[Rfam]
RNA sequence: AAUGAGAGUGAUGAGUUGCACUAAUCAGUUGGGGUGUUUGUUGCAGUGUCAUCAUCACCCCAACCUGACCCAACCUGAAGACACACAGUGUGCACAGGGGCCAUCUGACUCAAC
Numbered sequence: 001a002a003u004g005a006g007a008g009u010g011a012u013g014a015g016u017u018g019c020a021c022u023a024a025u026c027a028g029u030u031g032g033g034g035u036g037u038u039u040g041u042u043g044c045a046g047u048g049u050c051a052u053c054a055u056c057a058c059c060c061c062a063a064c065c066u067g068a069c070c071c072a073a074c075c076u077g078a079a080g081a082c083a084c085a086c087a088g089u090g091u092g093c094a095c096a097g098g099g100g101c102c103a104u105c106u107g108a109c110u111c112a113a114c
Stems, first nucleotide, its partner, number of pairs: 006111003025068004029063004034058003040053001042051002